Small nucleolar RNA SNORD42: a 64-nucleotide RNA from Danio rerio. On this family, see Galardi et al., Mol Cell Biol 2002: "Purified box C/D snoRNPs are able to reproduce site-specific 2'-O-methylation of target RNA in vitro". Pairs were carried over by alignment from the consensus structure, which was predicted with PFOLD. A search with the family's covariance model found it, with a score of 50 bits. snoRNA U42 is found in intron 3 of the ribosomal protein L23a (RPL23a) gene in humans and is also present in mice. Taxonomically the source falls in Danio (Eukaryota, Actinopteri, Osteoglossocephalai, Otomorpha).
RNA sequence: GUGUAAUGAUGUAAAAUAAUUAUUUCUCUGAAAUGUGAUGUUCUCAAAGGAACCACUGAUACAC
Numbered sequence: 001g002u003g004u005a006a007u008g009a010u011g012u013a014a015a016a017u018a019a020u021u022a023u024u025u026c027u028c029u030g031a032a033a034u035g036u037g038a039u040g041u042u043c044u045c046a047a048a049g050g051a052a053c054c055a056c057u058g059a060u061a062c063a064c
Base pairs, nucleotide, nucleotide: 001064002063003062004061005060